[Rfam]
Rfam assigns this 86-nucleotide RNA sequence from Solanum commersonii to the family "MIR8024 microRNA precursor family". Its family is annotated with miRNA-mediated post-transcriptional gene silencing and RISC complex in the Gene Ontology. The source organism's lineage runs through Eukaryota, Mesangiospermae, asterids, Solanoideae and Solanum. The base pairs follow the family's consensus structure, which was predicted with RNAalifold.
RNA sequence: UUGAAAAUUUUAGAGACUUCAACUUGUAUACUUGAAGAAUUUGGAGACUUCAACUUGUAUACUUGGAGAACUUGAAGGCUUCAACU
Numbered sequence: 001u002u003g004a005a006a007a008u009u010u011u012a013g014a015g016a017c018u019u020c021a022a023c024u025u026g027u028a029u030a031c032u033u034g035a036a037g038a039a040u041u042u043g044g045a046g047a048c049u050u051c052a053a054c055u056u057g058u059a060u061a062c063u064u065g066g067a068g069a070a071c072u073u074g075a076a077g078g079c080u081u082c083a084a085c086u
Base pairs, nucleotide, nucleotide: 001084002083003082004081005080009076010075011074012073013072017068018067019066020065021064025059026058027057028056032053033052034051035050036049037048